Overview
Small nucleolar RNA Z152/R70/R12/: a 101-nucleotide RNA sequence from Kingdonia uniflora. The family's RNA type in Rfam is C/D-box small nucleolar RNA. Lineage of the source: Eukaryota > Streptophytina > Embryophyta > Circaeasteraceae > Kingdonia. It scores 59 bits against the family's covariance model. On this family, see Barneche et al., J Mol Biol 2001: "Identification of 66 box C/D snoRNAs in Arabidopsis thaliana: extensive gene duplications generated multiple isoforms predicting new ribosomal RNA 2'-O-methylation sites". Its family is annotated with nucleolus and RNA processing in the Gene Ontology.

Nucleotides: 101
Base pairs, nucleotide, nucleotide: 001101002100003099004098005097
Number, partner (000 for none) and nucleotide at each position: 001101g002100a003099u004098g005097c006000a007000a008000u009000g010000a011000u012000g013000a014000g015000a016000u017000u018000g019000a020000g021000g022000u023000g024000u025000u026000g027000g028000g029000c030000a031000g032000u033000g034000g035000g036000u037000g038000a039000g040000a041000c042000u043000c044000u045000a046000a047000a048000c049000c050000a051000g052000u053000u054000u055000u056000a057000c058000c059000g060000g061000g062000c063000c064000u065000u066000g067000u068000c069000a070000c071000c072000a073000u074000c075000a076000a077000a078000c079000g080000a081000c082000u083000u084000c085000u086000c087000c088000u089000u090000c091000c092000u093000c094000u095000g096000a097005g098004c099003a100002u101001c